RNA sequence: AUGUGUUACAGCUCUUUUAGAACUUGUCUAGCAGUCUUUCCUGUUUUUGCCGGAAAGCUCCC
Numbered sequence: 001a002u003g004u005g006u007u008a009c010a011g012c013u014c015u016u017u018u019a020g021a022a023c024u025u026g027u028c029u030a031g032c033a034g035u036c037u038u039u040c041c042u043g044u045u046u047u048u049g050c051c052g053g054a055a056a057g058c059u060c061c062c
Base pairs, nucleotide, nucleotide: 034059036057037056038055039054040053041052043050044049